c-di-AMP riboswitch aptamer (ydaO/yuaA leader): a 193-nucleotide RNA from Sinomonas atrocyanea.
It scores 69 bits against the family's covariance model.

[Rfam]
RNA sequence: AGGCCUUGUCCGCCGAGCUCUGCCGACGGCCUGGGGGGAGGUAGGAGGCAGAGACGGAGGACCCACUCAGCGGCCGCGCCCAGUUCUACGGGCAUUCUUGACGGCCUCGGGGUGAAGCCCUUGCCACUGGCAGGGCCGGAUGACUCUCAUCCGAACCCGACAGCUAACUUCGCAGGCGCAAACGAGAGGCCCU
Numbered sequence: 001a002g003g004c005c006u007u008g009u010c011c012g013c014c015g016a017g018c019u020c021u022g023c024c025g026a027c028g029g030c031c032u033g034g035g036g037g038g039a040g041g042u043a044g045g046a047g048g049c050a051g052a053g054a055c056g057g058a059g060g061a062c063c064c065a066c067u068c069a070g071c072g073g074c075c076g077c078g079c080c081c082a083g084u085u086c087u088a089c090g091g092g093c094a095u096u097c098u099u100g101a102c103g104g105c106c107u108c109g110g111g112g113u114g115a116a117g118c119c120c121u122u123g124c125c126a127c128u129g130g131c132a133g134g135g136c137c138g139g140a141u142g143a144c145u146c147u148c149a150u151c152c153g154a155a156c157c158c159g160a161c162a163g164c165u166a167a168c169u170u171c172g173c174a175g176g177c178g179c180a181a182a183c184g185a186g187a188g189g190c191c192c193u
Stems, first nucleotide, its partner, number of pairs: 011178004018053007055172005064109001110158003118135004138152004